This 234-nucleotide sequence from Pelotomaculum schinkii belongs to the Rfam family "BsrG". The literature on the family includes a 2008 paper in Gene by Saito et al., "Novel small RNA-encoding genes in the intergenic regions of Bacillus subtilis". The organism belongs to Pelotomaculum, within Bacteria. bsrE, bsrG and bsrH pair through intermolecular interactions with antisense sRNAs.
RNA sequence: ACAACAGAAAGGCUCAGGGCGGUCGGCAUUCCCUCCGGAAGGAGGUGGUGCCAUGGAAGUAUAUCAAACGUUAACACUAAUGAUCUCCUUUGGAGCAUUGGUGGUUUUGAUACUUUCUUUCCAUAAUAGGAAAUAGACCGCCCCAUCGCAAAGGUUAGCGGUCUAUUCCGUCUACCUUAAAGCCGACCGCCCAUAAAGCGGCUGUUGUGAGGAACCAUGCUACCAACAUGGUUC
Numbered sequence: 001a002c003a004a005c006a007g008a009a010a011g012g013c014u015c016a017g018g019g020c021g022g023u024c025g026g027c028a029u030u031c032c033c034u035c036c037g038g039a040a041g042g043a044g045g046u047g048g049u050g051c052c053a054u055g056g057a058a059g060u061a062u063a064u065c066a067a068a069c070g071u072u073a074a075c076a077c078u079a080a081u082g083a084u085c086u087c088c089u090u091u092g093g094a095g096c097a098u099u100g101g102u103g104g105u106u107u108u109g110a111u112a113c114u115u116u117c118u119u120u121c122c123a124u125a126a127u128a129g130g131a132a133a134u135a136g137a138c139c140g141c142c143c144c145a146u147c148g149c150a151a152a153g154g155u156u157a158g159c160g161g162u163c164u165a166u167u168c169c170g171u172c173u174a175c176c177u178u179a180a181a182g183c184c185g186a187c188c189g190c191c192c193a194u195a196a197a198g199c200g201g202c203u204g205u206u207g208u209g210a211g212g213a214a215c216c217a218u219g220c221u222a223c224c225a226a227c228a229u230g231g232u233u234c
Base pairs, nucleotide, nucleotide: 001208002207003206004205005204007202011184012183013182014181017144018143019142021138023136028046030045031044033042034041055117056116057115058114059113060112061111069082070081093108094107095106159170160169161168187201188200189199190198212234213233214232215231216230217229218228219227221225